[Rfam]
RNA sequence: AUGCCCAGUGAUUAUAAAAAGACGCGUUAUUGUGAGGAGAAAAAAUACUAGAACCAGUUUCUUUCUCUUGAAUCUAGCCUUUUAUUCACCACUUUUUUCCUAGUCCCACUUCUCUUCCUCUACCCCCACCCUAACUUCACUUCUUUCAACUGGAAGACUAGUAUCCGCUGAACGUGAUUAUGAGAUAUGAGGGCAU
Dot-bracket structure: ((((((............................(((((.....................................................................))))).............................................................................))))))
A member of the RNA family "Small nucleolar RNA SNORD97" from Acipenser ruthenus, 196 nucleotides long. On this family, see Vitali et al., Nucleic Acids Res 2003: "Identification of 13 novel human modification guide RNAs". Rfam links the family to the GO terms RNA processing and nucleolus.